[Rfam]
RNA sequence: GUAAAUAGAUGACGUAUACCGCAGACAGCAGGUGCGCCAUGCGCUUAAUUUCCUGCCGAGGUAGUUUUCGAUAAACUCCUUUUAUUAAAGGGGUACUUGUGCGAGAACAAAACCUUCGUGUCUGGGGACAUGAAGGUUUUUUUAUGAGGAU
Numbered sequence: 001g002u003a004a005a006u007a008g009a010u011g012a013c014g015u016a017u018a019c020c021g022c023a024g025a026c027a028g029c030a031g032g033u034g035c036g037c038c039a040u041g042c043g044c045u046u047a048a049u050u051u052c053c054u055g056c057c058g059a060g061g062u063a064g065u066u067u068u069c070g071a072u073a074a075a076c077u078c079c080u081u082u083u084a085u086u087a088a089a090g091g092g093g094u095a096c097u098u099g100u101g102c103g104a105g106a107a108c109a110a111a112a113c114c115u116u117c118g119u120g121u122c123u124g125g126g127g128a129c130a131u132g133a134a135g136g137u138u139u140u141u142u143u144a145u146g147a148g149g150a151u
Stems, first nucleotide, its partner, number of pairs: 028056005034044003113136010